[Rfam]
RNA: FMN riboswitch aptamer (RFN element)
Organism: Paenibacillus xerothermodurans
RNA sequence: GAUUUCCUUCGGGGCGGGGCGAAAUUCCCCACCGGCGGUGAUACAAUGCGAAUUCUCGCGCGUUGUUCAGUCCGUGACCCGGCCGCGGCAGCAUCUGGCGCAUCCGGUGGACUCGGUGUGAUUCCGAGACCGACAGUAUAGUCUGGAUGGGAGAAGGAAACG
Numbered sequence: 001g002a003u004u005u006c007c008u009u010c011g012g013g014g015c016g017g018g019g020c021g022a023a024a025u026u027c028c029c030c031a032c033c034g035g036c037g038g039u040g041a042u043a044c045a046a047u048g049c050g051a052a053u054u055c056u057c058g059c060g061c062g063u064u065g066u067u068c069a070g071u072c073c074g075u076g077a078c079c080c081g082g083c084c085g086c087g088g089c090a091g092c093a094u095c096u097g098g099c100g101c102a103u104c105c106g107g108u109g110g111a112c113u114c115g116g117u118g119u120g121a122u123u124c125c126g127a128g129a130c131c132g133a134c135a136g137u138a139u140a141g142u143c144u145g146g147a148u149g150g151g152a153g154a155a156g157g158a159a160a161c162g
Base pairs, nucleotide, nucleotide: 003160004159005158006157007156008155009154010153017029018028019027031142032141033132034131035075036074037073038072070130071129079107080106081105082104112128113127114126115125116124134145135144136143